[Rfam]
RNA sequence: GUUCCCAAUGAUGCUUGAAACUUUCAAACCAUGCUAAUGCUGAUAAUCCAGUGAUUAUAUUUUGAUUUUUUUUUCUGAGGGAACU
Numbered sequence: 001g002u003u004c005c006c007a008a009u010g011a012u013g014c015u016u017g018a019a020a021c022u023u024u025c026a027a028a029c030c031a032u033g034c035u036a037a038u039g040c041u042g043a044u045a046a047u048c049c050a051g052u053g054a055u056u057a058u059a060u061u062u063u064g065a066u067u068u069u070u071u072u073u074u075c076u077g078a079g080g081g082a083a084c085u
Stems, first nucleotide, its partner, number of pairs: 001084005
Rfam assigns this 85-nucleotide RNA sequence from Hibiscus syriacus to the family "Small nucleolar RNA snoR53Y". Gene Ontology terms of the family: nucleolus and RNA processing. By type it is a C/D-box small nucleolar RNA. The family's consensus secondary structure was predicted with WAR. The family is grouped with related families in Rfam's "snoR53 clan".